Annotation
This 118-nucleotide sequence from Mesorhizobium wenxiniae belongs to the Rfam family "Alphaproteobacterial ar14". Smr14C2 was renamed NfeR1 (Nodule Formation Efficiency RNA) highly expressed in salt stress and during the symbiotic interaction on legume roots. It is annotated as a small RNA.

RNA sequence: AGGUGUCGGCCAUCUACUCCUCCCAGAUGCGAUGCCGACGCUGAGUGCGGUACACCUCCUCCCGUCCCGUAUUCGAAAUCAAGCCCGCUGCCACCUCCUCCCGGCAGCGGGCUUUUUU
Numbered sequence: 001a002g003g004u005g006u007c008g009g010c011c012a013u014c015u016a017c018u019c020c021u022c023c024c025a026g027a028u029g030c031g032a033u034g035c036c037g038a039c040g041c042u043g044a045g046u047g048c049g050g051u052a053c054a055c056c057u058c059c060u061c062c063c064g065u066c067c068c069g070u071a072u073u074c075g076a077a078a079u080c081a082a083g084c085c086c087g088c089u090g091c092c093a094c095c096u097c098c099u100c101c102c103g104g105c106a107g108c109g110g111g112c113u114u115u116u117u118u
Stems, first nucleotide, its partner, number of pairs: 007037003011029003043074008052065001081114011